About this RNA: Rfam assigns this 363-nucleotide RNA from Tessaracoccus rhinocerotis to the family "Bacterial RNase P class A". The family is grouped with related families in Rfam's "RNaseP clan". Pairs were carried over by alignment from the consensus structure, which is taken from published work. The family's RNA type in Rfam is ribozyme. About the family: Ribonuclease P (RNase P) is a ubiquitous endoribonuclease, found in archaea, bacteria and eukarya as well as chloroplasts and mitochondria. Rfam links the family to the GO terms ribonuclease P activity, dimeric ribonuclease P complex and tRNA processing. The organism belongs to Tessaracoccus, within Bacteria.
[Rfam]
RNA sequence: CGAGUCGGCCAGAUGAUCGCGGCGCAUGCGCUGAGGAAAGUCCGGACUCCGCAGAGCGGGGUGGUGGGUAACGCCCACCCGGGGUGACCCGCGGGAAAGUGCCACAGAGAACAGACCGCCCGGCGAGAGCCGGGCAAGGGUGAAACGGCGGUGUAAGAGACCACCAGCACGCAGGGUGACCUGCGUGGCUAGGCAAACCCCACCCGGAGCAAGACCAAGAAGGCCAGCUCGCUGGCUGCGGACACCGUCCGAGCGCUGCUCGCGCGAGGUGUCCGGGUAGGUCGCACCGAGCCAACCGGUGACGGUUGGCCCAGAUGGAUGAUCAUCCUUCGACAGAAUCCGGCUUACCGGCCGGCUCGUCCC
Numbered sequence: 001c002g003a004g005u006c007g008g009c010c011a012g013a014u015g016a017u018c019g020c021g022g023c024g025c026a027u028g029c030g031c032u033g034a035g036g037a038a039a040g041u042c043c044g045g046a047c048u049c050c051g052c053a054g055a056g057c058g059g060g061g062u063g064g065u066g067g068g069u070a071a072c073g074c075c076c077a078c079c080c081g082g083g084g085u086g087a088c089c090c091g092c093g094g095g096a097a098a099g100u101g102c103c104a105c106a107g108a109g110a111a112c113a114g115a116c117c118g119c120c121c122g123g124c125g126a127g128a129g130c131c132g133g134g135c136a137a138g139g140g141u142g143a144a145a146c147g148g149c150g151g152u153g154u155a156a157g158a159g160a161c162c163a164c165c166a167g168c169a170c171g172c173a174g175g176g177u178g179a180c181c182u183g184c185g186u187g188g189c190u191a192g193g194c195a196a197a198c199c200c201c202a203c204c205c206g207g208a209g210c211a212a213g214a215c216c217a218a219g220a221a222g223g224c225c226a227g228c229u230c231g232c233u234g235g236c237u238g239c240g241g242a243c244a245c246c247g248u249c250c251g252a253g254c255g256c257u258g259c260u261c262g263c264g265c266g267a268g269g270u271g272u273c274c275g276g277g278u279a280g281g282u283c284g285c286a287c288c289g290a291g292c293c294a295a296c297c298g299g300u301g302a303c304g305g306u307u308g309g310c311c312c313a314g315a316u317g318g319a320u321g322a323u324c325a326u327c328c329u330u331c332g333a334c335a336g337a338a339u340c341c342g343g344c345u346u347a348c349c350g351g352c353c354g355g356c357u358c359g360u361c362c363c
Base pairs, nucleotide, nucleotide: 001359002358003357004356005355006354007353008352009351010350012327013326014325015324016323017322018321020033021032022031023030024029038346039345040344042343043342044341045340046339047209048208049207050206054261055260056259057258059205060204061203062202063201064078065077066076067075068074079093080091081090082089083088094200095199099198100197101194102193103192116139117138118135119134120133121132122131123130124129147165148164150162151161152160167189168187169186170185171184172183173182174181175180213283214282215281216280253265254264255263256262291310292309293308294307295306296305297304298303